[Rfam]
Overview
The record is a 182-nucleotide RNA sequence from Bacillus mesophilus, which matches "Lysine riboswitch aptamer" in Rfam. Lineage of the source: Bacteria > Bacillati > Bacillota > Bacillaceae > Bacillus.

RNA sequence: UAGUGAGGUAGAGGUGCAAGAUCUAACAGUCUUUAGCUAGCGUGAGUAGCGAUGACACUAAAGAGAAGGAGAUAUUGCCGAAGUAAAUGAUAGACUCGACUAUUAUUUGCUGGGUCUGCAGUUAAUAGCUGCAGGACUGUCUCGAUAAACAUCCUAGUUUAUUGAGUUGUGCUAUCUCAUUA
Numbered sequence: 001u002a003g004u005g006a007g008g009u010a011g012a013g014g015u016g017c018a019a020g021a022u023c024u025a026a027c028a029g030u031c032u033u034u035a036g037c038u039a040g041c042g043u044g045a046g047u048a049g050c051g052a053u054g055a056c057a058c059u060a061a062a063g064a065g066a067a068g069g070a071g072a073u074a075u076u077g078c079c080g081a082a083g084u085a086a087a088u089g090a091u092a093g094a095c096u097c098g099a100c101u102a103u104u105a106u107u108u109g110c111u112g113g114g115u116c117u118g119c120a121g122u123u124a125a126u127a128g129c130u131g132c133a134g135g136a137c138u139g140u141c142u143c144g145a146u147a148a149a150c151a152u153c154c155u156a157g158u159u160u161a162u163u164g165a166g167u168u169g170u171g172c173u174a175u176c177u178c179a180u181u182a
Base pairs, nucleotide, nucleotide: 006177007176008175009174010173011172016078017077018076019075021073022072023071024070032063033062034061036059038057082111083110084109085108086107087106088105089104090103091102092101093100112138113137115135116134117133118132119131120130121129122128141166142165143164144163145162146161147160148159149158